[Rfam]
RNA sequence: ACGCUGUCCCCAUGCAUCGCUGACACCCGUCAGCAGCAUCCCAGGUCGCCAUGAUCUUCAAGGCGACGGCACGGUUCCGACCGCGUUGAUCACUCCAGUUCGCACCGGCAUCCACGCGCGAACGGCCAUCGAUUCUCGAUGGUGAUGC
Numbered sequence: 001a002c003g004c005u006g007u008c009c010c011c012a013u014g015c016a017u018c019g020c021u022g023a024c025a026c027c028c029g030u031c032a033g034c035a036g037c038a039u040c041c042c043a044g045g046u047c048g049c050c051a052u053g054a055u056c057u058u059c060a061a062g063g064c065g066a067c068g069g070c071a072c073g074g075u076u077c078c079g080a081c082c083g084c085g086u087u088g089a090u091c092a093c094u095c096c097a098g099u100u101c102g103c104a105c106c107g108g109c110a111u112c113c114a115c116g117c118g119c120g121a122a123c124g125g126c127c128a129u130c131g132a133u134u135c136u137c138g139a140u141g142g143u144g145a146u147g148c
Stems, first nucleotide, its partner, number of pairs: 012039003019034006045067006053091004068087003072083003118148003125143008
This 148-nucleotide sequence from Sinimarinibacterium flocculans belongs to the Rfam family "radC RNA". The organism belongs to Sinimarinibacterium, within Bacteria. A search with the family's covariance model found it, with a score of 110 bits.